About this RNA:
mir-92 microRNA precursor family: a 77-nucleotide sequence from Callorhinchus milii. The literature on the family includes a 2002 paper in Genes Dev by Mourelatos et al., "miRNPs: a novel class of ribonucleoproteins containing numerous microRNAs". A search with the family's covariance model found it, with a score of 75 bits. The family's consensus secondary structure was predicted with PFOLD. From the family's description: This family represents the microRNA precursor mir-92. Clan: mir-92 microRNA precursor clan. The family has 23 seed sequences and 1,347 matches in Rfam 15.1.
RNA sequence: CUUUCUGCACCGGUUGGGAUUUGUUGCAAUGCUGAUAAAUGCAUGGUAUUGCACUUGUCCCGGCCUGUUAAGGAUAG
Numbered sequence: 001c002u003u004u005c006u007g008c009a010c011c012g013g014u015u016g017g018g019a020u021u022u023g024u025u026g027c028a029a030u031g032c033u034g035a036u037a038a039a040u041g042c043a044u045g046g047u048a049u050u051g052c053a054c055u056u057g058u059c060c061c062g063g064c065c066u067g068u069u070a071a072g073g074a075u076a077g
Stems, first nucleotide, its partner, number of pairs: 004073003009068002012065003016061005023054002026052009